Bacterial RNase P class A: a 395-nucleotide RNA from Flexilinea flocculi. Lineage of the source: Bacteria > Bacillati > Anaerolineae > Anaerolineaceae > Flexilinea.
RNA sequence: CAGGUUAAUCAGAUGAUCGCGGUGUGGCGUGUUCGCACCGAGGAAAGUCCGCACUCCUUAGAGCAAGAUGCCGGAUAACGUCCGGGGCGGGGAAACUUGCCGGAAAAGGGCCACAGAAAAUAGACCGCCUCAUGAAAAUGAAGUAAGGGUGAAAAGGUGGUGUAAGAGACUACCGGCGUUAGUGGUAACACUGCGGCCGGGUAACCCCCAUCUGGAGCAAGGCCAAGCAGAAGCAAAGCAUAUCGCGCAUAUGCGGGGAUCUGCUCGAUCCCCUCGAAGCUUCGGGUAGGCUGCUAGAGUCGUAUGGUAACAUGCGUCCCAGAGAGAUGGUCAUCUAAGCGGGAGAUCUCGAGGUCUCCUCUGAACAGAAUGCGGCUUAUAGAUUAACCUGAUUU
Numbered sequence: 001c002a003g004g005u006u007a008a009u010c011a012g013a014u015g016a017u018c019g020c021g022g023u024g025u026g027g028c029g030u031g032u033u034c035g036c037a038c039c040g041a042g043g044a045a046a047g048u049c050c051g052c053a054c055u056c057c058u059u060a061g062a063g064c065a066a067g068a069u070g071c072c073g074g075a076u077a078a079c080g081u082c083c084g085g086g087g088c089g090g091g092g093a094a095a096c097u098u099g100c101c102g103g104a105a106a107a108g109g110g111c112c113a114c115a116g117a118a119a120a121u122a123g124a125c126c127g128c129c130u131c132a133u134g135a136a137a138a139u140g141a142a143g144u145a146a147g148g149g150u151g152a153a154a155a156g157g158u159g160g161u162g163u164a165a166g167a168g169a170c171u172a173c174c175g176g177c178g179u180u181a182g183u184g185g186u187a188a189c190a191c192u193g194c195g196g197c198c199g200g201g202u203a204a205c206c207c208c209c210a211u212c213u214g215g216a217g218c219a220a221g222g223c224c225a226a227g228c229a230g231a232a233g234c235a236a237a238g239c240a241u242a243u244c245g246c247g248c249a250u251a252u253g254c255g256g257g258g259a260u261c262u263g264c265u266c267g268a269u270c271c272c273c274u275c276g277a278a279g280c281u282u283c284g285g286g287u288a289g290g291c292u293g294c295u296a297g298a299g300u301c302g303u304a305u306g307g308u309a310a311c312a313u314g315c316g317u318c319c320c321a322g323a324g325a326g327a328u329g330g331u332c333a334u335c336u337a338a339g340c341g342g343g344a345g346a347u348c349u350c351g352a353g354g355u356c357u358c359c360u361c362u363g364a365a366c367a368g369a370a371u372g373c374g375g376c377u378u379a380u381a382g383a384u385u386a387a388c389c390u391g392a393u394u395u
Stems, first nucleotide, its partner, number of pairs: 001391010011380001012335007020040008045378003049375005054217004061266004066213005071085005087101001088099004102208002108206002110202003125148002127144002130141004156174006176197001177195002180193005221292004230283005257271005299318001301316006
Pairs were carried over by alignment from the consensus structure, which is taken from published work. It scores 268 bits against the family's covariance model.